Bacterial large signal recognition particle RNA: a 268-nucleotide RNA sequence from Paenibacillus macerans.
A search with the family's covariance model found it, with a score of 216 bits.

RNA sequence: CCGUGCUAGAUGGGGAGGUAGCGGUGCCCUGUAACUCGCAAUCCGCUGUAGCGAGGUUGAAGUCCUGUUAGAGGUCUUGCCGAUGUGAGGUCCGGUCUUUACGACAGACGUUGACGGACGGGUCCUCCGCAAAGAGUACCUGUGAACCUGGUCAGGUCCGGAAGGAAGCAGCCAUAAGCAGCACCACUCUUGUGCCGGAGGGUUGCCUGUCCCGAGUUAUGCCGUAAAGGUGCCGCUCGGAUCGCAAUGAUCAAUAACAGGUGCACGG
Numbered sequence: 001c002c003g004u005g006c007u008a009g010a011u012g013g014g015g016a017g018g019u020a021g022c023g024g025u026g027c028c029c030u031g032u033a034a035c036u037c038g039c040a041a042u043c044c045g046c047u048g049u050a051g052c053g054a055g056g057u058u059g060a061a062g063u064c065c066u067g068u069u070a071g072a073g074g075u076c077u078u079g080c081c082g083a084u085g086u087g088a089g090g091u092c093c094g095g096u097c098u099u100u101a102c103g104a105c106a107g108a109c110g111u112u113g114a115c116g117g118a119c120g121g122g123u124c125c126u127c128c129g130c131a132a133a134g135a136g137u138a139c140c141u142g143u144g145a146a147c148c149u150g151g152u153c154a155g156g157u158c159c160g161g162a163a164g165g166a167a168g169c170a171g172c173c174a175u176a177a178g179c180a181g182c183a184c185c186a187c188u189c190u191u192g193u194g195c196c197g198g199a200g201g202g203u204u205g206c207c208u209g210u211c212c213c214g215a216g217u218u219a220u221g222c223c224g225u226a227a228a229g230g231u232g233c234c235g236c237u238c239g240g241a242u243c244g245c246a247a248u249g250a251u252c253a254a255u256a257a258c259a260g261g262u263g264c265a266c267g268g
Base pairs, nucleotide, nucleotide: 001268002267003266004265005264006263009058010057011056012030013029014028015027017025019023035055036054037053038052039051064261065260066259067258068257069256070255073252074251075250076249081244082243083242084241086239087238088237089236093232094231097229098228099227100226101225102224105221106220107218108217109216116212117211118210119209120208121207122206123205124201125200126199127198128197129196130192131191133190134189135188136187137186140181141180142179143178149174150173151172152171157166158165159164

Notes
By type it is a non-coding RNA gene. Its Rfam clan is "SRP clan". Rfam links the family to the GO terms SRP-dependent cotranslational protein targeting to membrane, signal sequence recognition and signal recognition particle, plasma membrane targeting.